[Rfam]
RNA: Nitrogen stress-induced RNA 1
Organism: Coleofasciculus sp. LEGE 07092
RNA sequence: UGGUAGAUGCACCCUGAUAAUUUUAACCCCUGGCUGUAGAGGUUCAGGGGUUUUUUAU
Numbered sequence: 001u002g003g004u005a006g007a008u009g010c011a012c013c014c015u016g017a018u019a020a021u022u023u024u025a026a027c028c029c030c031u032g033g034c035u036g037u038a039g040a041g042g043u044u045c046a047g048g049g050g051u052u053u054u055u056u057a058u
Stems, first nucleotide, its partner, number of pairs: 002013003027050007035042001